A member of the RNA family "TPP riboswitch aptamer (THI element)" from Rickettsiales bacterium Ac37b, 99 nucleotides long. Vitamin B(1) in its active form thiamin pyrophosphate (TPP) is an essential coenzyme that is synthesised by coupling of pyrimidine and thiazole moieties in bacteria. The previously detected thiamin-regulatory element, thi box was extended, resulting in a new, highly conserved RNA secondary structure, the THI element, which is widely distributed in eubacteria and also occurs in some archaea. Analysis of operon structures identified a large number of new candidate thiamin-regulated genes, mostly transporters, in various prokaryotic organisms. The THI element is a riboswitch that directly binds to TPP to regulate gene expression through a variety of mechanisms in archaea, bacteria and eukaryotes. through a variety of mechanisms in archaea, bacteria and eukaryotes. The organism belongs to Rickettsiales, within Bacteria.
[Rfam]
RNA sequence: AUUAAUCACCGGGGGUGCUAAAAUAUAUAUUUAGCUGAGAAAAACCCUUAUUACCUGAUUGAGAUAGUGCUUACGUAGGGAGAGUGUUUUAUUAUUAUU
Number, nucleotide and partner (000 for none) at each position: 001a000002u000003u000004a000005a000006u000007c086008a085009c084010c000011g048012g047013g046014g045015g000016u042017g035018c034019u033020a032021a031022a000023a000024u000025a000026u000027a000028u000029a000030u000031u021032u020033a019034g018035c017036u000037g000038a000039g000040a000041a000042a016043a000044a000045c014046c013047c012048u011049u000050a000051u000052u000053a000054c079055c078056u077057g076058a000059u000060u073061g072062a071063g070064a000065u000066a000067g000068u000069g000070c063071u062072u061073a060074c000075g000076u057077a056078g055079g054080g000081a000082g000083a000084g009085u008086g007087u000088u000089u000090u000091a000092u000093u000094a000095u000096u000097a000098u000099u000